A member of the RNA family "FMN riboswitch aptamer (RFN element)" from Paucilactobacillus wasatchensis, 124 nucleotides long.
[Rfam]
Nucleotides: 124
Base pairs, nucleotide, nucleotide: 005120006119007118008117009116010115017029018028019027031104032103033094034093035049036048037047038046044092045091053067054066072090074088075087076086077085096107097106098105
Number, partner (000 for none) and nucleotide at each position: 001000g002000u003000u004000c005120g006119u007118c008117u009116u010115c011000a012000g013000g014000g015000c016000a017029g018028g019027g020000u021000g022000u023000a024000a025000u026000u027019c028018c029017c030000g031104a032103c033094c034093g035049g036048c037047g038046g039000u040000g041000a042000u043000a044092g045091c046038c047037c048036g049035c050000g051000a052000c053067c054066u055000g056000c057000u058000g059000a060000a061000u062000a063000a064000g065000c066054a067053g068000c069000u070000g071000a072090a073000u074088c075087u076086g077085g078000u079000g080000g081000a082000a083000u084000c085077c086076c087075a088074g089000g090072u091045g092044c093034c094033g095000a096107c097106a098105g099000u100000a101000u102000a103032g104031u105098c106097u107096g108000g109000u110000a111000u112000a113000a114000a115010g116009a117008a118007g119006a120005u121000u122000u123000u124000c
The family's consensus secondary structure is taken from published work. The organism belongs to Paucilactobacillus, within Bacteria. On this family, see Wilt et al., J Struct Biol X 2020: "FMN riboswitch aptamer symmetry facilitates conformational switching through mutually exclusive coaxial stacking configurations".